The family of this 162-nucleotide sequence from Paenibacillus silvestris is "c-di-AMP riboswitch aptamer (ydaO/yuaA leader)". Taxonomically the source falls in Paenibacillus (Bacteria, Bacillota, Bacilli, Caryophanales).
RNA sequence: UUGAAUAUUUCGCUUAAUUUUCUAAUCAGAAAAGCGGGGGAACCACAGGUUUCAACGGGGUGAGUAAGGUGCGUCUUGUCGCAUUGCGGCAGCUACCUUUAGGGCAGAUUUCUCGCAGCCCGAACCCGUCAGCUAACCUCGUAAGCGGUCGUGAGAAAGGAG
Dot-bracket structure: ..........((((...(((((......)))))((((((....(............)(((.....((((((......................))))))..((((............))))...))).........)))))).))))...............

A search with the family's covariance model found it, with a score of 85 bits.
From the family's description: This family represents a conserved RNA structure found upstream of the ydaO and yuaA genes in Bacillus subtilis and related genes in other bacteria.
Gene Ontology terms of the family: cyclic-di-AMP binding and regulation of gene expression.